[Rfam]
RNA sequence: UGCGCAGCGCGUGUUUCAGCACGAUGUUGGAAAAGGACACACCCUUGAGCCGCGCGGUGCGGAUGUACUGCGCCGUCAUCACCUCGGUCAUCGAGGCGCGGGUCAUCCGCGCGAUAUACCCCAUGCCGUACAGGGCGAUGGUCAGCACCGGCAGAAAGAAAUUCUCGAAGGUCGGGUUG
Dot-bracket structure: ....((.(((.(..((..(((......(((.......(.(.(...(((.(((((((((((((.....))))))))......(((((.....)))))))))).)))...).).).......)))))).).)..).))).)).....(((((((.(.((....)).).....)))))..))
Numbered sequence: 001u002g003c004g005c006a007g008c009g010c011g012u013g014u015u016u017c018a019g020c021a022c023g024a025u026g027u028u029g030g031a032a033a034a035g036g037a038c039a040c041a042c043c044c045u046u047g048a049g050c051c052g053c054g055c056g057g058u059g060c061g062g063a064u065g066u067a068c069u070g071c072g073c074c075g076u077c078a079u080c081a082c083c084u085c086g087g088u089c090a091u092c093g094a095g096g097c098g099c100g101g102g103u104c105a106u107c108c109g110c111g112c113g114a115u116a117u118a119c120c121c122c123a124u125g126c127c128g129u130a131c132a133g134g135g136c137g138a139u140g141g142u143c144a145g146c147a148c149c150g151g152c153a154g155a156a157a158g159a160a161a162u163u164c165u166c167g168a169a170g171g172u173c174g175g176g177u178u179g
Stems, first nucleotide, its partner, number of pairs: 005140002008137003012133001015130001016128001019126003028123003038113001040111001042109001046105003050101005055075008082096005146179002148175005154165001156163002
Shown here is a 179-nucleotide RNA from Ruegeria intermedia, a member of the family "Ruegeria cis52 sRNA". Taxonomically the source falls in Ruegeria (Bacteria, Pseudomonadati, Pseudomonadota, Roseobacteraceae). For this family Rfam cites "Experimental Identification of Small Non-Coding RNAs in the Model Marine Bacterium Ruegeria pomeroyi DSS-3" (Rivers et al., Front Microbiol, 2016).